Shown here is a 218-nucleotide RNA from Paramagnetospirillum magneticum, a member of the family "permuted transfer-messenger RNA". The family's RNA type in Rfam is non-coding RNA gene. Pairs were carried over by alignment from the consensus structure, which is taken from published work. NCBI's taxonomy places the organism under Bacteria, Pseudomonadati, Rhodospirillales, Magnetospirillaceae, Paramagnetospirillum magneticum.
RNA sequence: GACGCUAAACGCCACACGGAAUAGACGUUACGGACCCGGGGGCGGUACCCGGCGCCUCCACCAAAUUUCCCGGCCCAGGACGCGGGCCGGAACAUCGGGGGCGAAACAGGAUCGACGUGCGCAGUAAAGGUCUGGUUUGCGUUCGGCAUGAUACCACCGUUAUCGGGUCAAUCCUAACAAGUGCCAACGACAACGUUGAACUUGCCGCUGCGGCUUAA
Numbered sequence: 001g002a003c004g005c006u007a008a009a010c011g012c013c014a015c016a017c018g019g020a021a022u023a024g025a026c027g028u029u030a031c032g033g034a035c036c037c038g039g040g041g042g043c044g045g046u047a048c049c050c051g052g053c054g055c056c057u058c059c060a061c062c063a064a065a066u067u068u069c070c071c072g073g074c075c076c077a078g079g080a081c082g083c084g085g086g087c088c089g090g091a092a093c094a095u096c097g098g099g100g101g102c103g104a105a106a107c108a109g110g111a112u113c114g115a116c117g118u119g120c121g122c123a124g125u126a127a128a129g130g131u132c133u134g135g136u137u138u139g140c141g142u143u144c145g146g147c148a149u150g151a152u153a154c155c156a157c158c159g160u161u162a163u164c165g166g167g168u169c170a171a172u173c174c175u176a177a178c179a180a181g182u183g184c185c186a187a188c189g190a191c192a193a194c195g196u197u198g199a200a201c202u203u204g205c206c207g208c209u210g211c212g213g214c215u216u217a218a
Stems, first nucleotide, its partner, number of pairs: 001143005014133001016131002026121003030118003036052005053103007144159003
Dot-bracket structure: (((((........(.((........(((.(((...(((((.......)))))(((((((.....................................)))))))............))))))........)).).....)))))(((..........)))...........................................................